Record summary: The record is a 408-nucleotide RNA sequence from Chlorobium limicola, which matches "Bacterial RNase P class A" in Rfam. The sequence is in the family's curated seed alignment. By type it is a ribozyme. The organism belongs to Chlorobium limicola, within Bacteria.
[Rfam]
RNA sequence: AAACCGCAAGUGUGCAGCCGCUGUAUAACUUCUGGUUAUGCAGAGGAAAGUCCGAACUUCACAGGGCAGGAUGCCGGUCGAGAGCCGAAAGGCUCAAGCCCGGGGACAGCAGGGAAAACCAGCUGUCACAGAUAGUGCAACAGAAAAUAUACCGCUCCGGGAAACCGGUGUAAGGGUGAAAAGGCGGUGUAAGAGACCACCGGAUAUUCCGGUAACGGAAUGUGCCUGGCAAACCUCUCCGAAGCAAGGCUAAAUAGGAAAACUUUUUUCCUUCGGGAAAAAAAGAGCGGCCCGUUCAAUUCCUUUUACAAGGAGAGUUUUCGGGUAAGCCGCAUCAGAUAAAUGGCUGCAGCUUCAUAUCCCAGGGGAUAUGAUCCACAGAAUUCGGCUUACAGCUUCGGUUUCAGC
Numbered sequence: 001a002a003a004c005c006g007c008a009a010g011u012g013u014g015c016a017g018c019c020g021c022u023g024u025a026u027a028a029c030u031u032c033u034g035g036u037u038a039u040g041c042a043g044a045g046g047a048a049a050g051u052c053c054g055a056a057c058u059u060c061a062c063a064g065g066g067c068a069g070g071a072u073g074c075c076g077g078u079c080g081a082g083a084g085c086c087g088a089a090a091g092g093c094u095c096a097a098g099c100c101c102g103g104g105g106a107c108a109g110c111a112g113g114g115a116a117a118a119c120c121a122g123c124u125g126u127c128a129c130a131g132a133u134a135g136u137g138c139a140a141c142a143g144a145a146a147a148u149a150u151a152c153c154g155c156u157c158c159g160g161g162a163a164a165c166c167g168g169u170g171u172a173a174g175g176g177u178g179a180a181a182a183g184g185c186g187g188u189g190u191a192a193g194a195g196a197c198c199a200c201c202g203g204a205u206a207u208u209c210c211g212g213u214a215a216c217g218g219a220a221u222g223u224g225c226c227u228g229g230c231a232a233a234c235c236u237c238u239c240c241g242a243a244g245c246a247a248g249g250c251u252a253a254a255u256a257g258g259a260a261a262a263c264u265u266u267u268u269u270c271c272u273u274c275g276g277g278a279a280a281a282a283a284a285g286a287g288c289g290g291c292c293c294g295u296u297c298a299a300u301u302c303c304u305u306u307u308a309c310a311a312g313g314a315g316a317g318u319u320u321u322c323g324g325g326u327a328a329g330c331c332g333c334a335u336c337a338g339a340u341a342a343a344u345g346g347c348u349g350c351a352g353c354u355u356c357a358u359a360u361c362c363c364a365g366g367g368g369a370u371a372u373g374a375u376c377c378a379c380a381g382a383a384u385u386c387g388g389c390u391u392a393c394a395g396c397u398u399c400g401g402u403u404u405c406a407g408c
Stems, first nucleotide, its partner, number of pairs: 001404006008398004012393001013351007021043009048391003052388005057244004064309001066307001069240003073237001074103004104129001105127006130236002135234002137230002152175002154171002157168004183201002186198003203225001204223008248331004258322006300315005